[Rfam]
RNA sequence: UGAUCUGAAGUCAGGUGGGAUUACCCGCUGAACUUAAGCAUAUCAAUAAGCGGAGGAAAAGAAAAUAACAAUGAUUUCCCUAGUAACGGCGAGUGAAGAGGAAAGAGCUCAAAGUUGGAACCUGUUUGGCCUAGCUAAACCGGAUUGUAGACUGUAGAAGUGUUUUCCAGGCAAGCCGAGUAAAUAAGUCCUUUGGAACAGGGCAUCAUAGAGGGUGAGAAUCCCGUCUUUGGCUUGAGCAUUUGCCUUUUGUGAUACGCUUUCAAAGAGUCAGGUUGUUUGGGAAUGCAGCCUAAAUUGGGUGGUAAAUCUCACCUAAAGCUAAAUAUUGGCGAGAAACCGAUAGCGAACAAGUACCGUGAGGGAAAGAUGAAAAGAACUUUGAAAAGAGAGUUAAACAGUAUGUGAAAUUGUUAAAAGGGAAC
Numbered sequence: 001u002g003a004u005c006u007g008a009a010g011u012c013a014g015g016u017g018g019g020a021u022u023a024c025c026c027g028c029u030g031a032a033c034u035u036a037a038g039c040a041u042a043u044c045a046a047u048a049a050g051c052g053g054a055g056g057a058a059a060a061g062a063a064a065a066u067a068a069c070a071a072u073g074a075u076u077u078c079c080c081u082a083g084u085a086a087c088g089g090c091g092a093g094u095g096a097a098g099a100g101g102a103a104a105g106a107g108c109u110c111a112a113a114g115u116u117g118g119a120a121c122c123u124g125u126u127u128g129g130c131c132u133a134g135c136u137a138a139a140c141c142g143g144a145u146u147g148u149a150g151a152c153u154g155u156a157g158a159a160g161u162g163u164u165u166u167c168c169a170g171g172c173a174a175g176c177c178g179a180g181u182a183a184a185u186a187a188g189u190c191c192u193u194u195g196g197a198a199c200a201g202g203g204c205a206u207c208a209u210a211g212a213g214g215g216u217g218a219g220a221a222u223c224c225c226g227u228c229u230u231u232g233g234c235u236u237g238a239g240c241a242u243u244u245g246c247c248u249u250u251u252g253u254g255a256u257a258c259g260c261u262u263u264c265a266a267a268g269a270g271u272c273a274g275g276u277u278g279u280u281u282g283g284g285a286a287u288g289c290a291g292c293c294u295a296a297a298u299u300g301g302g303u304g305g306u307a308a309a310u311c312u313c314a315c316c317u318a319a320a321g322c323u324a325a326a327u328a329u330u331g332g333c334g335a336g337a338a339a340c341c342g343a344u345a346g347c348g349a350a351c352a353a354g355u356a357c358c359g360u361g362a363g364g365g366a367a368a369g370a371u372g373a374a375a376a377g378a379a380c381u382u383u384g385a386a387a388a389g390a391g392a393g394u395u396a397a398a399c400a401g402u403a404u405g406u407g408a409a410a411u412u413g414u415u416a417a418a419a420g421g422g423a424a425c
Stems, first nucleotide, its partner, number of pairs: 024055001025053005035042002065072002076103004086094002106323004115149001118146002121143002124140004157264002159261004164257001166255002169248007178236004183231002188204001190203004207211001214224002273294007300317005357364002380391004
Dot-bracket structure: .......................((((((.....((....))......))))).).........((....))...((((......((.....)).....))))..((((.....(..((.((.((((.........)))).)).))..).......((((((.(.((.(((((((..((((.((...(.((((......)))))..(...)..((.......)).....)).)))).....))))))).....)).))))).))........(((((((........))))))).....(((((........)))))..)))).................................((....))...............((((....))))..................................

Eukaryotic large subunit ribosomal RNA: a 425-nucleotide part of an RNA from Rhizopus delemar. The base pairs follow the family's consensus structure, which is taken from published work.